[Rfam]
mir-87 microRNA precursor family: a 72-nucleotide sequence from Ixodes scapularis. The sequence is in the family's curated seed alignment. A reference for the family is Sempere et al. (2003), "Temporal regulation of microRNA expression in Drosophila melanogaster mediated by hormonal signals and broad-Complex gene activity", Dev Biol. The family's consensus secondary structure was predicted with RNAalifold. Gene Ontology terms of the family: RISC complex and miRNA-mediated post-transcriptional gene silencing.
RNA sequence: UGACUGCCUGCCUGAAAAUUUGUCUCAAACCUUUCAUAGUGUAGGUGAGCAAAGUUUCAGGUGUGUUGUCUU
Numbered sequence: 001u002g003a004c005u006g007c008c009u010g011c012c013u014g015a016a017a018a019u020u021u022g023u024c025u026c027a028a029a030c031c032u033u034u035c036a037u038a039g040u041g042u043a044g045g046u047g048a049g050c051a052a053a054g055u056u057u058c059a060g061g062u063g064u065g066u067u068g069u070c071u072u
Stems, first nucleotide, its partner, number of pairs: 002070003006066002009063007017055001019053003024049004030045003